[Rfam]
Nucleotides: 143
Base pairs, nucleotide, nucleotide: 001044002043003042005014006013015038020036021035022034024032025031048061049060050059051058071087072086073085075084076083093106094105095104096103114138115137116136117135118134119133120132121131122130124129
Number, partner (000 for none) and nucleotide at each position: 001044a002043g003042u004000c005014u006013c007000g008000u009000u010000a011000a012000g013006g014005a015038a016000a017000u018000u019000u020036u021035u022034a023000c024032g025031c026000g027000u028000c029000c030000g031025g032024u033000u034022u035021a036020g037000g038015u039000u040000u041000u042003g043002c044001u045000u046000a047000u048061c049060c050059a051058g052000u053000u054000u055000g056000c057000g058051c059050u060049g061048g062000a063000g064000u065000u066000u067000u068000u069000c070000a071087g072086a073085g074000c075084g076083g077000u078000u079000c080000c081000u082000u083076c084075c085073c086072u087071c088000u089000g090000u091000u092000u093106g094105a095104c096103g097000c098000c099000u100000c101000c102000c103096u104095g105094u106093u107000a108000a109000c110000u111000u112000u113000c114138g115137a116136g117135a118134g119133c120132c121131g122130u123000u124129c125000g126000c127000u128000u129124g130122a131121c132120g133119g134118c135117u136116c137115u138114u139000u140000u141000u142000u143000c